[Rfam]
RNA sequence: GAGAAAUCUUUAUGGGGCAGGACUUGCUUCAGUGGGGUUUUGGUGCUCACUGAGUCUGUCCUUUGAGUGUGUCACU
Numbered sequence: 001g002a003g004a005a006a007u008c009u010u011u012a013u014g015g016g017g018c019a020g021g022a023c024u025u026g027c028u029u030c031a032g033u034g035g036g037g038u039u040u041u042g043g044u045g046c047u048c049a050c051u052g053a054g055u056c057u058g059u060c061c062u063u064u065g066a067g068u069g070u071g072u073c074a075c076u
Stems, first nucleotide, its partner, number of pairs: 001075001003073002006070002009067004014062006021056003029053008037044002